[Rfam]
RNA sequence: CGUCGCUGCCGCGCUCACCAGAGGCGGCAGACCGGGGCCCACCGCCCCGGACCGAAGAACAUAUAAGCGCUGGCCCACCUUCGAAUCGGGCGCCAGCCCAACAAGAAAUUUCGGAUGUACGCAUGCUCCAGGAAGGAGCAUGAAAUCCC
Number, nucleotide and partner (000 for none) at each position: 001c000002g000003u000004c000005g000006c030007u029008g028009c027010c026011g025012c024013g000014c023015u022016c021017a000018c000019c000020a000021g016022a015023g014024g012025c011026g010027g009028c008029a007030g006031a000032c050033c049034g048035g047036g046037g045038c044039c000040c000041a000042c000043c000044g038045c037046c036047c035048c034049g033050g032051a000052c000053c000054g000055a000056a000057g000058a000059a000060c000061a000062u000063a000064u000065a000066a000067g000068c000069g000070c000071u000072g000073g000074c000075c000076c000077a000078c000079c000080u000081u000082c000083g000084a000085a000086u000087c000088g000089g000090g000091c000092g000093c000094c000095a000096g000097c000098c000099c000100a000101a000102c000103a000104a000105g000106a000107a000108a000109u000110u000111u000112c000113g000114g000115a000116u000117g000118u000119a000120c000121g000122c142123a141124u140125g139126c138127u137128c136129c135130a000131g000132g000133a000134a000135g129136g128137a127138g126139c125140a124141u123142g122143a000144a000145a000146u000147c000148c000149c000